The record is a 116-nucleotide RNA from Geotrypetes seraphini, which matches "mraW RNA" in Rfam.
NCBI's taxonomy places the organism under Eukaryota, Opisthokonta, Metazoa, Sarcopterygii, Geotrypetes.
The family has 45 seed sequences and 851 matches in Rfam 15.1.
The match comes from Rfam's covariance-model search (54 bits).
[Rfam]
RNA sequence: CCUUGAAGUUGCGUCGUGUUGCCUGCUGGAAAAAUCUCCUCUGACGCAACUUCCCAUUUCCGGUUGCAUCGGAGGAGACUUUUCUAGCAGGCAACCCGACGCAACUUCAAGGCUUC
Numbered sequence: 001c002c003u004u005g006a007a008g009u010u011g012c013g014u015c016g017u018g019u020u021g022c023c024u025g026c027u028g029g030a031a032a033a034a035u036c037u038c039c040u041c042u043g044a045c046g047c048a049a050c051u052u053c054c055c056a057u058u059u060c061c062g063g064u065u066g067c068a069u070c071g072g073a074g075g076a077g078a079c080u081u082u083u084c085u086a087g088c089a090g091g092c093a094a095c096c097c098g099a100c101g102c103a104a105c106u107u108c109a110a111g112g113c114u115u116c
Stems, first nucleotide, its partner, number of pairs: 010103007018095002021092013035078010046067006